[Rfam]
RNA sequence: UUUAAAGUUUUAUAGGGUUCCGCAGUUCCAAGGAGAAGAACUGGCCUGGACCAAGAUAAAACGCAUAGCUGGAUCUAUGUACACGGAAGGAUAAAAGCCUGGGAGAU
Number, nucleotide and partner (000 for none) at each position: 001u000002u000003u000004a000005a000006a000007g062008u061009u060010u059011u058012a057013u000014a000015g052016g051017g000018u000019u000020c049021c048022g046023c043024a042025g041026u040027u039028c038029c000030a000031a000032g000033g000034a000035g000036a000037a000038g028039a027040a026041c025042u024043g023044g000045c000046c022047u000048g021049g020050a000051c016052c015053a000054a000055g000056a000057u012058a011059a010060a009061a008062c007063g080064c079065a078066u077067a076068g075069c000070u000071g000072g000073a000074u000075c068076u067077a066078u065079g064080u063081a000082c102083a000084c105085g000086g000087a000088a100089g099090g098091a000092u000093a000094a000095a000096a000097g000098c090099c089100u088101g000102g082103g000104a000105g084106a000107u000
Shown here is a 107-nucleotide RNA from Syntrophobotulus glycolicus, a member of the family "Guanidine-I riboswitch aptamer". The family has 100 seed sequences and 1,509 matches in Rfam 15.1. Its family is annotated with regulation of gene expression in the Gene Ontology. Rfam describes the family as follows. This family represents a conserved RNA structure found upstream of the ykkC and yxkD genes in Bacillus subtilis and related genes in other bacteria.